[Rfam]
RNA: Purine riboswitch aptamer
RNA sequence: AUUUCAUAGAGAAUACAUUCUUGUAUAUCAUUAGAAAUAAGGUCUAAUAGUUUCUACCGGGUUGCCGUAAACUACCCGACUACAAGAAUAAUUUAGUUAUGU
Numbered sequence: 001a002u003u004u005c006a007u008a009g010a011g012a013a014u015a016c017a018u019u020c021u022u023g024u025a026u027a028u029c030a031u032u033a034g035a036a037a038u039a040a041g042g043u044c045u046a047a048u049a050g051u052u053u054c055u056a057c058c059g060g061g062u063u064g065c066c067g068u069a070a071a072c073u074a075c076c077c078g079a080c081u082a083c084a085a086g087a088a089u090a091a092u093u094u095a096g097u098u099a100u101g102u
Base pairs, nucleotide, nucleotide: 018088019087020086021085022084023083024082025081030048031047032046033045034044035043058078059077060076061075062074064072